[Rfam]
The record is a 154-nucleotide RNA sequence from Salisediminibacterium halotolerans, which matches "Molybdenum/Tungsten riboswitch aptamer (Moco RNA motif)" in Rfam. The organism belongs to Salisediminibacterium, within Bacteria.
RNA sequence: GUUUAUAUCAGUCUCCGAGUCACUGAUACCUGCGGCCUUUCGGCUAUGGUGCAUUGACCUGAGCAGAACGUCACGAUGUUUCUUUCUGUUCACGGGGUCCUGCGUGGAAACACCCGGACCUUCCCUUUUGUAAAGGAGGCGUUUCAUUGGUGCA
Numbered sequence: 001g002u003u004u005a006u007a008u009c010a011g012u013c014u015c016c017g018a019g020u021c022a023c024u025g026a027u028a029c030c031u032g033c034g035g036c037c038u039u040u041c042g043g044c045u046a047u048g049g050u051g052c053a054u055u056g057a058c059c060u061g062a063g064c065a066g067a068a069c070g071u072c073a074c075g076a077u078g079u080u081u082c083u084u085u086c087u088g089u090u091c092a093c094g095g096g097g098u099c100c101u102g103c104g105u106g107g108a109a110a111c112a113c114c115c116g117g118a119c120c121u122u123c124c125c126u127u128u129u130g131u132a133a134a135g136g137a138g139g140c141g142u143u144u145c146a147u148u149g150g151u152g153c154a
Stems, first nucleotide, its partner, number of pairs: 011140006019058004024053002027051004034045004060092009095121006102114001104113003123130001